A member of the RNA family "mir-219 microRNA precursor family" from Alligator mississippiensis, 70 nucleotides long.
RNA sequence: CCGGGUCCUGAUUGUCCAAACGCAAUUCUUGUGUCUGCCCCAAGAAUUGAGUGUGGACGUCGGGAGCCGC
Numbered sequence: 001c002c003g004g005g006u007c008c009u010g011a012u013u014g015u016c017c018a019a020a021c022g023c024a025a026u027u028c029u030u031g032u033g034u035c036u037g038c039c040c041c042a043a044g045a046a047u048u049g050a051g052u053g054u055g056g057a058c059g060u061c062g063g064g065a066g067c068c069g070c
Base pairs, nucleotide, nucleotide: 002069003068004067006065007064009062010061011060012059014058015057016056017055018054021051023049024048025047026046027045028044029043030042031041
Annotation
The source organism's lineage runs through Eukaryota, Teleostomi, Euteleostomi, Archosauria and Alligator. Gene Ontology terms of the family: miRNA-mediated post-transcriptional gene silencing and RISC complex. The base pairs follow the family's consensus structure, which was predicted with RNAalifold. The match comes from Rfam's covariance-model search (65 bits). The family has 92 seed sequences and 1,318 matches in Rfam 15.1.